[Rfam]
RNA: Small nucleolar RNA snoR14
Organism: Apium graveolens
RNA sequence: GCGAGAUGAUGAUAAGAUUGACUUGCUCUGUCAUUCCUGAUAAUCUUUGAUGUUAUAAAAUCUCGACAGGAUCUGAUCGC
Numbered sequence: 001g002c003g004a005g006a007u008g009a010u011g012a013u014a015a016g017a018u019u020g021a022c023u024u025g026c027u028c029u030g031u032c033a034u035u036c037c038u039g040a041u042a043a044u045c046u047u048u049g050a051u052g053u054u055a056u057a058a059a060a061u062c063u064c065g066a067c068a069g070g071a072u073c074u075g076a077u078c079g080c
Base pairs, nucleotide, nucleotide: 001080002079003078004077